RNA sequence: AAAAAGGGCAGGCCUUGCCUAAGGCACAGUGUGGGCGGCUUUGCCGUCCUAGUGGUGAAUCGUGAUCAAGAGAUUUGCCCUGCAUAAUUUCUGAGCGGCCGCGAUGGAAUGGGCCUCAAAGGCUAAUUCCACCGG
Numbered sequence: 001a002a003a004a005a006g007g008g009c010a011g012g013c014c015u016u017g018c019c020u021a022a023g024g025c026a027c028a029g030u031g032u033g034g035g036c037g038g039c040u041u042u043g044c045c046g047u048c049c050u051a052g053u054g055g056u057g058a059a060u061c062g063u064g065a066u067c068a069a070g071a072g073a074u075u076u077g078c079c080c081u082g083c084a085u086a087a088u089u090u091c092u093g094a095g096c097g098g099c100c101g102c103g104a105u106g107g108a109a110u111g112g113g114c115c116u117c118a119a120a121g122g123c124u125a126a127u128u129c130c131a132c133c134g135g
Stems, first nucleotide, its partner, number of pairs: 008083005016026004027054002030051002033049007055078007101133001103132001106130005113123004
The record is a 135-nucleotide RNA from Phytophthora pseudosyringae, which matches "U11 spliceosomal RNA" in Rfam.
By type it is a spliceosomal small nuclear RNA.
Rfam 15.1 lists 2,595 matches to the family in 1,202 species.